[Rfam]
The record is a 145-nucleotide RNA from Collinsella sp. AK_207A, which matches "FMN riboswitch aptamer (RFN element)" in Rfam.
The RFN element is a highly conserved domain that is found frequently in the 5'-untranslated regions of prokaryotic mRNAs that encode for flavin mononucleotide (FMN) biosynthesis and transport proteins.
The family's consensus secondary structure is taken from published work.

RNA sequence: GCAAUGUUUCAGGGCGGGGUGAGAUUCCCCACCGGCGGUAACUGGCCGCGUCCAUGCGAUGCCAGGAGCCCGCGACCCGCGAAGAGCGGCUGACCUGGUGAGAUUCCAGGGCCGACGGUUACAGUCCGGAAGGAAGAAACGGAGG
Numbered sequence: 001g002c003a004a005u006g007u008u009u010c011a012g013g014g015c016g017g018g019g020u021g022a023g024a025u026u027c028c029c030c031a032c033c034g035g036c037g038g039u040a041a042c043u044g045g046c047c048g049c050g051u052c053c054a055u056g057c058g059a060u061g062c063c064a065g066g067a068g069c070c071c072g073c074g075a076c077c078c079g080c081g082a083a084g085a086g087c088g089g090c091u092g093a094c095c096u097g098g099u100g101a102g103a104u105u106c107c108a109g110g111g112c113c114g115a116c117g118g119u120u121a122c123a124g125u126c127c128g129g130a131a132g133g134a135a136g137a138a139a140c141g142g143a144g145g
Stems, first nucleotide, its partner, number of pairs: 005141006017029003031125002033114002035073004068112002077089002094110005116128003